[Rfam]
RNA sequence: AUUAUUUGAGGUGGAAAAUUUCGCACGAUCCACACGCCGCUGGUACAGACAAGGGAAACCUGAGAGAUGCAGGAGAAGCGUGCGCCUGCCAAAUAAU
Numbered sequence: 001a002u003u004a005u006u007u008g009a010g011g012u013g014g015a016a017a018a019u020u021u022c023g024c025a026c027g028a029u030c031c032a033c034a035c036g037c038c039g040c041u042g043g044u045a046c047a048g049a050c051a052a053g054g055g056a057a058a059c060c061u062g063a064g065a066g067a068u069g070c071a072g073g074a075g076a077a078g079c080g081u082g083c084g085c086c087u088g089c090c091a092a093a094u095a096a097u
Base pairs, nucleotide, nucleotide: 001097002096003095004094005093006092007091008090011033012032013031014030015029023083024082025081026080027079035064036044037043038042069089070088071087072086073085
RNA: skipping-rope RNA
Organism: Clostridium sp. CAG:7